[Rfam]
RNA sequence: AUUCCUUCUUUCGUGUAUACCCCGAGUUAAUGCAGCCUCAGAUGCUUUA
Numbered sequence: 001a002u003u004c005c006u007u008c009u010u011u012c013g014u015g016u017a018u019a020c021c022c023c024g025a026g027u028u029a030a031u032g033c034a035g036c037c038u039c040a041g042a043u044g045c046u047u048u049a
Base pairs, nucleotide, nucleotide: 011026013022034046035045036044
Background
This 49-nucleotide sequence belongs to the Rfam family "Plastid-ycf3 group II-D1 intron". The sequence is in the family's curated seed alignment. About the family: Plastid rpl16 is a non-coding RNA (ncRNA) recognised in plastids. It was recognised in and intronic region of a ribosome rpl16 gene. Rfam 15.1 lists 1,488 matches to the family in 559 species.